[Rfam]
RNA sequence: GUUAGUAAUAGCAUAUAUGGGUGAGAAUCCCAUACGCCGUAAGCACACGGGUUUCUUCGCAACGCUCGUCAGCGGAGAGUUAGGCGAUCCUAAGUCUUAGGCCAACAACCGAGAGACAAAAGGGAAGCUGGUUAAUAUUCCAGCCCCUAACAGGUAGGUGUGGCAACACAAGGCAGAUUUCUGACGGUUGGGGAUAUGUCCGUAAGAAGAUGCAAAGGGCUGCAGAGUCUCGUUAUGAGGAGAAGCAGCUAAAUGAAUCGUUGGACUGAGUUCUUGAUCCAGUGAAAAGGAAAUCUGCAACGACCCUGUUAGUUCGUACCUAGAACUAGUACAAGUGUUGCUAGCUUAAAAAGCCAAGGCGUGU
Numbered sequence: 001g002u003u004a005g006u007a008a009u010a011g012c013a014u015a016u017a018u019g020g021g022u023g024a025g026a027a028u029c030c031c032a033u034a035c036g037c038c039g040u041a042a043g044c045a046c047a048c049g050g051g052u053u054u055c056u057u058c059g060c061a062a063c064g065c066u067c068g069u070c071a072g073c074g075g076a077g078a079g080u081u082a083g084g085c086g087a088u089c090c091u092a093a094g095u096c097u098u099a100g101g102c103c104a105a106c107a108a109c110c111g112a113g114a115g116a117c118a119a120a121a122g123g124g125a126a127g128c129u130g131g132u133u134a135a136u137a138u139u140c141c142a143g144c145c146c147c148u149a150a151c152a153g154g155u156a157g158g159u160g161u162g163g164c165a166a167c168a169c170a171a172g173g174c175a176g177a178u179u180u181c182u183g184a185c186g187g188u189u190g191g192g193g194a195u196a197u198g199u200c201c202g203u204a205a206g207a208a209g210a211u212g213c214a215a216a217g218g219g220c221u222g223c224a225g226a227g228u229c230u231c232g233u234u235a236u237g238a239g240g241a242g243a244a245g246c247a248g249c250u251a252a253a254u255g256a257a258u259c260g261u262u263g264g265a266c267u268g269a270g271u272u273c274u275u276g277a278u279c280c281a282g283u284g285a286a287a288a289g290g291a292a293a294u295c296u297g298c299a300a301c302g303a304c305c306c307u308g309u310u311a312g313u314u315c316g317u318a319c320c321u322a323g324a325a326c327u328a329g330u331a332c333a334a335g336u337g338u339u340g341c342u343a344g345c346u347u348a349a350a351a352a353g354c355c356a357a358g359g360c361g362u363g364u
Stems, first nucleotide, its partner, number of pairs: 016034006035361004045338002049320002054078006064070001085316003089123002094117005100110002127144005147312008180291003186279009198266004210258002213255001219249005229239003326335002342356001344354002
RNA: Archaeal large subunit ribosomal RNA, nucleotides 1331 to 1694
Organism: Candidatus Mancarchaeum acidiphilum